[Rfam]
Background:
A member of the RNA family "SAM riboswitch aptamer (S box leader)" from Dactylosporangium sucinum, 128 nucleotides long. NCBI's taxonomy places the organism under Bacteria, Actinomycetota, Actinomycetes, Micromonosporaceae, Dactylosporangium. The base pairs follow the family's consensus structure, which is taken from published work.

RNA sequence: ACCUCAUCCAGAGGGGCAGAGGGAUACGGCCCGAUGAAGCCCCGGCAACCCCUGCGCGGACGACUCGAUGACGAGUCGCGCGCGGUAGGUGCCAAUUCCGUCCCGGUGAGACCCGGGAAAGAUGAGAG
Numbered sequence: 001a002c003c004u005c006a007u008c009c010a011g012a013g014g015g016g017c018a019g020a021g022g023g024a025u026a027c028g029g030c031c032c033g034a035u036g037a038a039g040c041c042c043c044g045g046c047a048a049c050c051c052c053u054g055c056g057c058g059g060a061c062g063a064c065u066c067g068a069u070g071a072c073g074a075g076u077c078g079c080g081c082g083c084g085g086u087a088g089g090u091g092c093c094a095a096u097u098c099c100g101u102c103c104c105g106g107u108g109a110g111a112c113c114c115g116g117g118a119a120a121g122a123u124g125a126g127a128g
Base pairs, nucleotide, nucleotide: 003126004125005124006123007122008121013043014042015041016040017039021032022031023030026101027100028099029098044093045092046091047090049089050088051085052084097120102117103116104115105114106113